[Rfam]
RNA sequence: UUAUCUUGGUCGGGGUGCCCAACGCUGAUUUCUUGCGAGAUCACAUUAUAGGGCUGAGAUUAAACCCGCAGAACCUGAUCCGGCUCGAACCGGCGUAGGAAAUCGAGAUACACCUAUG
Numbered sequence: 001u002u003a004u005c006u007u008g009g010u011c012g013g014g015g016u017g018c019c020c021a022a023c024g025c026u027g028a029u030u031u032c033u034u035g036c037g038a039g040a041u042c043a044c045a046u047u048a049u050a051g052g053g054c055u056g057a058g059a060u061u062a063a064a065c066c067c068g069c070a071g072a073a074c075c076u077g078a079u080c081c082g083g084c085u086c087g088a089a090c091c092g093g094c095g096u097a098g099g100a101a102a103u104c105g106a107g108a109u110a111c112a113c114c115u116a117u118g
Stems, first nucleotide, its partner, number of pairs: 006106005011068004016062001017054004074099004080093004
TPP riboswitch aptamer (THI element): a 118-nucleotide RNA from Marinobacterium lutimaris.